[Rfam]
RNA sequence: UUCACGGAGAGUUUGAUCCUGGCUCAGGACGAACGCUGGCGGCGUGCUUAACACAUGCAAGUCGAACGAUGAACCGCUUUCGGGCGGGGAUUAGUGGCGAACGGGUGAGUAACACGUGGGCAAUCUGCCCUGCACUCUGGGACAAGCCCUGGAAACGGGGUCUAAUACCGGAUACUCACUGCCUUGGGCAUCCUUGGUGGUGGAAAGCUCCGGCGGUGCAGGAUGAGCCCGCGGCCUAUCAGCUAGUUGGUGAGGUAAUGGCUCACCAAGGCGACGACGGGUAGCCGGCCUGAGAGGGCGACCGGCCACACUGGGACUGAGACACGGCCCAGACUCCUACGGGAGGCAGCAGUGGGGAAUAUUGCACAAUGGGCGAAAGCCUGAUGCAGCGACGCCGCGUGAGGGAUGACGGCCUUCGGGUUGUAAACCUCUUUCAGCAGGGAAGAAGCGAGAGUGACGGUACCUGCAGAAGAAGCGCCGGCUAACUACGUGCCAGCAGCCGCGGUAAUACGUAGGGCGCAAGCGUUGUCCGGAAUUAUUG
Numbered sequence: 001u002u003c004a005c006g007g008a009g010a011g012u013u014u015g016a017u018c019c020u021g022g023c024u025c026a027g028g029a030c031g032a033a034c035g036c037u038g039g040c041g042g043c044g045u046g047c048u049u050a051a052c053a054c055a056u057g058c059a060a061g062u063c064g065a066a067c068g069a070u071g072a073a074c075c076g077c078u079u080u081c082g083g084g085c086g087g088g089g090a091u092u093a094g095u096g097g098c099g100a101a102c103g104g105g106u107g108a109g110u111a112a113c114a115c116g117u118g119g120g121c122a123a124u125c126u127g128c129c130c131u132g133c134a135c136u137c138u139g140g141g142a143c144a145a146g147c148c149c150u151g152g153a154a155a156c157g158g159g160g161u162c163u164a165a166u167a168c169c170g171g172a173u174a175c176u177c178a179c180u181g182c183c184u185u186g187g188g189c190a191u192c193c194u195u196g197g198u199g200g201u202g203g204a205a206a207g208c209u210c211c212g213g214c215g216g217u218g219c220a221g222g223a224u225g226a227g228c229c230c231g232c233g234g235c236c237u238a239u240c241a242g243c244u245a246g247u248u249g250g251u252g253a254g255g256u257a258a259u260g261g262c263u264c265a266c267c268a269a270g271g272c273g274a275c276g277a278c279g280g281g282u283a284g285c286c287g288g289c290c291u292g293a294g295a296g297g298g299c300g301a302c303c304g305g306c307c308a309c310a311c312u313g314g315g316a317c318u319g320a321g322a323c324a325c326g327g328c329c330c331a332g333a334c335u336c337c338u339a340c341g342g343g344a345g346g347c348a349g350c351a352g353u354g355g356g357g358a359a360u361a362u363u364g365c366a367c368a369a370u371g372g373g374c375g376a377a378a379g380c381c382u383g384a385u386g387c388a389g390c391g392a393c394g395c396c397g398c399g400u401g402a403g404g405g406a407u408g409a410c411g412g413c414c415u416u417c418g419g420g421u422u423g424u425a426a427a428c429c430u431c432u433u434u435c436a437g438c439a440g441g442g443a444a445g446a447a448g449c450g451a452g453a454g455u456g457a458c459g460g461u462a463c464c465u466g467c468a469g470a471a472g473a474a475g476c477g478c479c480g481g482c483u484a485a486c487u488a489c490g491u492g493c494c495a496g497c498a499g500c501c502g503c504g505g506u507a508a509u510a511c512g513u514a515g516g517g518c519g520c521a522a523g524c525g526u527u528g529u530c531c532g533g534a535a536u537u538a539u540u541g
Stems, first nucleotide, its partner, number of pairs: 009025005027531004032527006039398006045391002047356001052354003056351003061098003066095002069091002074087005105309003115233007124226002129222007137171004146161006177202007186193002207214002235281003242272003247269008284306004288299004311332005334345004362388001364387003370383005401431004411422004435472001437467005445458001475520005486515005496503002
Rfam assigns this 541-nucleotide part of an RNA from Streptomyces sp. TverLS-915 to the family "Bacterial small subunit ribosomal RNA". It scores 1585 bits against the family's covariance model. Its Rfam clan is "SSU clan". Taxonomically the source falls in Streptomyces (Bacteria, Bacillati, Actinomycetota, Actinomycetes).